A member of the RNA family "Archaeal small subunit ribosomal RNA" from Ignicoccus hospitalis, 358 nucleotides of a longer RNA. The family's consensus secondary structure is taken from published work. Gene Ontology terms of the family: ribosome and structural constituent of ribosome.

RNA sequence: GGCCUAAAGCGCCCGUAGCCGGCCUGGUGGCCCCCCUCCUAAAGCCCCGGGCUCAACCCGGGGACUGGAGGGGGUAGCGCCAGGCUAGGGGGCGGGAGAGGCCGAGGGUACUCCCGGGGUAGGGGCGAAAUCCGAUAAUCCCGGGAGGACCGCCAGUGGCGAAGGCGCUCGGCUGGAACGCGCCCGACGGUGAGGGGCGAAAGCCGGGGGAGCAAACCGGAUUAGAUACCCGGGUAGUCCCGGCUGUAAACGAUGCGGGCUAGGUGUUGGGCGGGCUUCGAGCCCGCCCAGUGCCGCAGGGAAGCCGUUAAGCCCGCCGCCUGGGGAGUACGGCCGCAAGGCUGAAACUUAAAGGAAU
Numbered sequence: 001g002g003c004c005u006a007a008a009g010c011g012c013c014c015g016u017a018g019c020c021g022g023c024c025u026g027g028u029g030g031c032c033c034c035c036c037u038c039c040u041a042a043a044g045c046c047c048c049g050g051g052c053u054c055a056a057c058c059c060g061g062g063g064a065c066u067g068g069a070g071g072g073g074g075u076a077g078c079g080c081c082a083g084g085c086u087a088g089g090g091g092g093c094g095g096g097a098g099a100g101g102c103c104g105a106g107g108g109u110a111c112u113c114c115c116g117g118g119g120u121a122g123g124g125g126c127g128a129a130a131u132c133c134g135a136u137a138a139u140c141c142c143g144g145g146a147g148g149a150c151c152g153c154c155a156g157u158g159g160c161g162a163a164g165g166c167g168c169u170c171g172g173c174u175g176g177a178a179c180g181c182g183c184c185c186g187a188c189g190g191u192g193a194g195g196g197g198c199g200a201a202a203g204c205c206g207g208g209g210g211a212g213c214a215a216a217c218c219g220g221a222u223u224a225g226a227u228a229c230c231c232g233g234g235u236a237g238u239c240c241c242g243g244c245u246g247u248a249a250a251c252g253a254u255g256c257g258g259g260c261u262a263g264g265u266g267u268u269g270g271g272c273g274g275g276c277u278u279c280g281a282g283c284c285c286g287c288c289c290a291g292u293g294c295c296g297c298a299g300g301g302a303a304g305c306c307g308u309u310a311a312g313c314c315c316g317c318c319g320c321c322u323g324g325g326g327a328g329u330a331c332g333g334c335c336g337c338a339a340g341g342c343u344g345a346a347a348c349u350u351a352a353a354g355g356a357a358u
Stems, first nucleotide, its partner, number of pairs: 001321003009318001011198004016192001018191003022085007030078002032074008045063007089185003092181003100174007107151002111147008122133003159166002203244006212238002217233004255317006263295014299306002323350003332343004